[Rfam]
RNA sequence: GUAAUGUUUCUUGCUCAAAUGAGUAUUCCAUACACAAUAGCAUGCUUUUUUGCACACAAAGGUCAAAAACAAAUAAAAAAAAGUUCUUUCCACUUUGUGUAUAUAUACAGCUGUGCUUGUGUUUAUGAGAUGCUCAUUUGAGCAAGCAAUAUUGU
Numbered sequence: 001g002u003a004a005u006g007u008u009u010c011u012u013g014c015u016c017a018a019a020u021g022a023g024u025a026u027u028c029c030a031u032a033c034a035c036a037a038u039a040g041c042a043u044g045c046u047u048u049u050u051u052g053c054a055c056a057c058a059a060a061g062g063u064c065a066a067a068a069a070c071a072a073a074u075a076a077a078a079a080a081a082a083g084u085u086c087u088u089u090c091c092a093c094u095u096u097g098u099g100u101a102u103a104u105a106u107a108c109a110g111c112u113g114u115g116c117u118u119g120u121g122u123u124u125a126u127g128a129g130a131u132g133c134u135c136a137u138u139u140g141a142g143c144a145a146g147c148a149a150u151a152u153u154g155u
Stems, first nucleotide, its partner, number of pairs: 004152005010146018029127004
The family of this 155-nucleotide RNA from Cephalotus follicularis is "MIR828 microRNA precursor family". It scores 91 bits against the family's covariance model.